[Rfam]
RNA sequence: CCUGGGGCUGCGCCCCAGGCUGGUAUAGGUCGCACCUUCGGUGCU
Numbered sequence: 001c002c003u004g005g006g007g008c009u010g011c012g013c014c015c016c017a018g019g020c021u022g023g024u025a026u027a028g029g030u031c032g033c034a035c036c037u038u039c040g041g042u043g044c045u
Base pairs, nucleotide, nucleotide: 001019002018003017004016005015006014007013008012032044033043034042035041036040
This 45-nucleotide RNA sequence from a Pirellulaceae bacterium belongs to the Rfam family "Acido-Lenti-1 RNA". The organism belongs to Pirellulaceae, within Bacteria. The family's consensus secondary structure is taken from published work. It is annotated as a small RNA.